A member of the RNA family "Small nucleolar RNA SNORA69" from Triplophysa rosa, 134 nucleotides long. The family's consensus secondary structure was predicted with PFOLD. By type it is an H/ACA-box small nucleolar RNA. Rfam's curators write: U69 is a member of the H/ACA class of small nucleolar RNAs (snoRNAs) which act as guides in the the modification of uridines to pseudouridines.

RNA sequence: AAAGCAGGACGCAAUUACAGUGCUAAAUUUUGUGUUUGUACUGUCAUUAUCCUGCUGAGAGUAUUCUUCUGUUACAGAGUCAUAAGUACUGUCAUCCUGUAUGACAAGUAAAUGCUCUUGUUUCAGAGACACAA
Number, nucleotide and partner (000 for none) at each position: 001a000002a000003a056004g055005c054006a053007g052008g051009a000010c000011g000012c000013a000014a000015u000016u000017a000018c043019a042020g041021u040022g039023c038024u000025a036026a035027a000028u000029u000030u000031u000032g000033u000034g000035u026036u025037u000038g023039u022040a021041c020042u019043g018044u000045c000046a000047u000048u000049a000050u000051c008052c007053u006054g005055c004056u003057g000058a000059g000060a000061g000062u000063a000064u000065u000066c000067u128068u127069c126070u125071g124072u000073u000074a121075c120076a119077g118078a000079g000080u000081c000082a000083u112084a000085a000086g000087u110088a109089c108090u107091g105092u104093c103094a102095u101096c000097c000098u000099g000100u000101a095102u094103g093104a092105c091106a000107a090108g089109u088110a087111a000112a083113u000114g000115c000116u000117c000118u077119u076120g075121u074122u000123u000124c071125a070126g069127a068128g067129a000130c000131a000132c000133a000134a000